RNA: Xanthine riboswitch aptamer (NMT1 RNA)
RNA sequence: CAAAAGAGUAGAAGCGGUUAAGCCUUUUCGGCCUGGACAUUGCUCUUUCC
Numbered sequence: 001c002a003a004a005a006g007a008g009u010a011g012a013a014g015c016g017g018u019u020a021a022g023c024c025u026u027u028u029c030g031g032c033c034u035g036g037a038c039a040u041u042g043c044u045c046u047u048u049c050c
Stems, first nucleotide, its partner, number of pairs: 005046006015035001018037002022032003